[Rfam]
RNA sequence: AAAAUCCAUAGGCAAAACUGCUGAAAAGCAGUGACGCAAAGCUAUAGGGACUACUUCCGAAACGGGAUAUGUCAGCCAGUUGCAAAU
Numbered sequence: 001a002a003a004a005u006c007c008a009u010a011g012g013c014a015a016a017a018c019u020g021c022u023g024a025a026a027a028g029c030a031g032u033g034a035c036g037c038a039a040a041g042c043u044a045u046a047g048g049g050a051c052u053a054c055u056u057c058c059g060a061a062a063c064g065g066g067a068u069a070u071g072u073c074a075g076c077c078a079g080u081u082g083c084a085a086a087u
Base pairs, nucleotide, nucleotide: 012037013036017032018031019030020029021028022027040081041080042079043078047077048076049073050072051071056067057066058065
This 87-nucleotide RNA sequence from Paenibacillus rhizosphaerae belongs to the Rfam family "c-di-GMP-I riboswitch aptamer". Pairs were carried over by alignment from the consensus structure, which is taken from published work. Taxonomically the source falls in Paenibacillus (Bacteria, Bacillati, Caryophanales, Paenibacillaceae). GEMM was predicted in a large-scale screen for bacterial structured RNA regulatory elements. Gene Ontology term of the family: cyclic-di-GMP binding.